[Rfam]
RNA sequence: AUUGGAUCAAUGAUUUAAGUUAAUUAAACUGCGUUAUCUAUCUGCAAUUCUCCUCUUUCUAGGAGUUUGAAGAAAACCAUAAAAACCUGAGAUCCAGU
Numbered sequence: 001a002u003u004g005g006a007u008c009a010a011u012g013a014u015u016u017a018a019g020u021u022a023a024u025u026a027a028a029c030u031g032c033g034u035u036a037u038c039u040a041u042c043u044g045c046a047a048u049u050c051u052c053c054u055c056u057u058u059c060u061a062g063g064a065g066u067u068u069g070a071a072g073a074a075a076a077c078c079a080u081a082a083a084a085a086c087c088u089g090a091g092a093u094c095c096a097g098u
Stems, first nucleotide, its partner, number of pairs: 001098007
Dot-bracket structure: (((((((....................................................................................)))))))